[Rfam]
Glycine riboswitch aptamer: a 118-nucleotide sequence from Streptomyces coelicolor.
Rfam links the family to the GO term glycine biosynthetic process.
Taxonomically the source falls in Streptomyces (Bacteria, Actinomycetota, Kitasatosporales, Streptomycetaceae).
RNA sequence: UCACUCUGGAAAGCAGGGCGGGUGUCGACGGCUUCCGCUCUCACCGACGGUGAAAGCCGGGCAGAGCUCCAGGGCUCGCCCGGUGAAGCUCUCAGGUUGAGAUGACAGAGGGGGAGGC
Number, nucleotide and partner (000 for none) at each position: 001u113002c112003a000004c110005u109006c108007u107008g106009g000010a000011a000012a000013g000014c000015a041016g040017g039018g038019c037020g036021g035022g034023u000024g000025u000026c000027g000028a000029c000030g000031g000032c000033u000034u022035c021036c020037g019038c018039u017040c016041u015042c000043a097044c096045c095046g093047a092048c000049g000050g091051u000052g089053a000054a000055a000056g084057c083058c082059g081060g080061g079062c078063a000064g000065a000066g000067c000068u000069c000070c000071a000072g000073g000074g000075c000076u000077c000078g062079c061080c060081c059082g058083g057084u056085g000086a000087a000088g000089c052090u000091c050092u047093c046094a000095g045096g044097u043098u000099g000100a000101g000102a000103u000104g000105a000106c008107a007108g006109a005110g004111g000112g002113g001114g000115a000116g000117g000118c000